RNA sequence: UUGGAAGAUUUGAAGACGUUAGCUUGUAUACUUGGAAGAUUUGGAGACUCCAACUUGUAUACUUGGAGGAUUUGAAGACUUCAAUU
Dot-bracket structure: (((((...((((((..(.(((...((((...(((((............)))))..))))....))).)..))))))...)))))..
Numbered sequence: 001u002u003g004g005a006a007g008a009u010u011u012g013a014a015g016a017c018g019u020u021a022g023c024u025u026g027u028a029u030a031c032u033u034g035g036a037a038g039a040u041u042u043g044g045a046g047a048c049u050c051c052a053a054c055u056u057g058u059a060u061a062c063u064u065g066g067a068g069g070a071u072u073u074g075a076a077g078a079c080u081u082c083a084a085u086u
Stems, first nucleotide, its partner, number of pairs: 001084005009076006017068001019066003025059004032053005

Record summary: This 86-nucleotide RNA sequence from Solanum commersonii belongs to the Rfam family "MIR8024 microRNA precursor family". The match comes from Rfam's covariance-model search (89 bits). Gene Ontology terms of the family: miRNA-mediated post-transcriptional gene silencing and RISC complex. The family's consensus secondary structure was predicted with RNAalifold. Rfam 15.1 lists 661 matches to the family in 8 species.